[Rfam]
RNA sequence: CCUUCCGAAACAUGCCGCAGCAUGACCCGGUCAGAGAUAGUUGGCGAGGUAGAGCACUGAUUGGAGGAUCCGGGGAGGAAACUCCUCGCCCUCCUGUCAAACUCCAAAUUCGCCAUCGUCUGAGAAGAUCGGAAGUCCGGGCUACUGGGGUAAGCUUGUAGUCCGUGAGGGAGACAACCCAGACCAGGGUUAAGGUCCCCGAGUGUCGGCUAAGUGUUAAUUAAAGGGUGUCCUAAACCCUAAACAGCUGGGAGGUGAGCUUAGAAGCAGCUAACCUCUAAGGAGUGCGUAACAGCUCACCAGCCGAGGUUUAGGGCCCCGAAAAUGGACGGGGCUCAAGCCGACCACCGAUACCCUGGGAUACCGAAAGGUAAUUCAGUAGGAAGGCGCUCUGCAUGGGUAGAAGCUGGGGCGUAAGUUCCAGUGGACCGUGUAGAGAUGAGAAU
Numbered sequence: 001c002c003u004u005c006c007g008a009a010a011c012a013u014g015c016c017g018c019a020g021c022a023u024g025a026c027c028c029g030g031u032c033a034g035a036g037a038u039a040g041u042u043g044g045c046g047a048g049g050u051a052g053a054g055c056a057c058u059g060a061u062u063g064g065a066g067g068a069u070c071c072g073g074g075g076a077g078g079a080a081a082c083u084c085c086u087c088g089c090c091c092u093c094c095u096g097u098c099a100a101a102c103u104c105c106a107a108a109u110u111c112g113c114c115a116u117c118g119u120c121u122g123a124g125a126a127g128a129u130c131g132g133a134a135g136u137c138c139g140g141g142c143u144a145c146u147g148g149g150g151u152a153a154g155c156u157u158g159u160a161g162u163c164c165g166u167g168a169g170g171g172a173g174a175c176a177a178c179c180c181a182g183a184c185c186a187g188g189g190u191u192a193a194g195g196u197c198c199c200c201g202a203g204u205g206u207c208g209g210c211u212a213a214g215u216g217u218u219a220a221u222u223a224a225a226g227g228g229u230g231u232c233c234u235a236a237a238c239c240c241u242a243a244a245c246a247g248c249u250g251g252g253a254g255g256u257g258a259g260c261u262u263a264g265a266a267g268c269a270g271c272u273a274a275c276c277u278c279u280a281a282g283g284a285g286u287g288c289g290u291a292a293c294a295g296c297u298c299a300c301c302a303g304c305c306g307a308g309g310u311u312u313a314g315g316g317c318c319c320c321g322a323a324a325a326u327g328g329a330c331g332g333g334g335c336u337c338a339a340g341c342c343g344a345c346c347a348c349c350g351a352u353a354c355c356c357u358g359g360g361a362u363a364c365c366g367a368a369a370g371g372u373a374a375u376u377c378a379g380u381a382g383g384a385a386g387g388c389g390c391u392c393u394g395c396a397u398g399g400g401u402a403g404a405a406g407c408u409g410g411g412g413c414g415u416a417a418g419u420u421c422c423a424g425u426g427g428a429c430c431g432u433g434u435a436g437a438g439a440u441g442a443g444a445a446u
Base pairs, nucleotide, nucleotide: 001387002386003385004384005383006382011024012023013022014021015020026135027132028131029130030129031128032127036120037119038118040117042115043114044113045112046111047110052105053103054102059098060097061096063094064093065092066091067090072087073086074085075084076083077082139164140163141162142161143160144159145158147157148156169180170179171178184359185358186357187356188355189354190353194349195348196347203346205345206344207343208342209341210340226320227319228318230317231316232315233314234313235312236311237310238309239308247304248303249302250301251300253277254276255275258272259271260270278282283298287296288295360377361376362373363372364371365370388441390438391437392436393435394434395433396432397431398430399429406425407424408423409422410421411420412419413418
RNA: Archaeal large subunit ribosomal RNA, nucleotides 932 to 1377